[Rfam]
RNA: Small nucleolar RNA SNORD75
RNA sequence: AGCCUAUGAUGAAGAACAAUGUAUAAGAGUAGUGGACAGAAAGGGUUUCUGAGAAAUACAUUUCUGAGGCU
Dot-bracket structure: ((((...............................................................))))